[Rfam]
RNA sequence: GCAAGAAUCACAGCUUUCAAAAUGGUAGUGAUAACCCCACAUAAUGUCAUUACAGGAUUGAGCUGCCAGGGAAUUACUCCUUUCCCUGGUGGUAUGCCU
Numbered sequence: 001g002c003a004a005g006a007a008u009c010a011c012a013g014c015u016u017u018c019a020a021a022a023u024g025g026u027a028g029u030g031a032u033a034a035c036c037c038c039a040c041a042u043a044a045u046g047u048c049a050u051u052a053c054a055g056g057a058u059u060g061a062g063c064u065g066c067c068a069g070g071g072a073a074u075u076a077c078u079c080c081u082u083u084c085c086c087u088g089g090u091g092g093u094a095u096g097c098c099u
Stems, first nucleotide, its partner, number of pairs: 025053008062093012
This 99-nucleotide RNA belongs to the Rfam family "RAGATH-23 RNA". Rfam's curators put it in the seed alignment. By type it is a small RNA. Pairs were carried over by alignment from the consensus structure, which is taken from published work.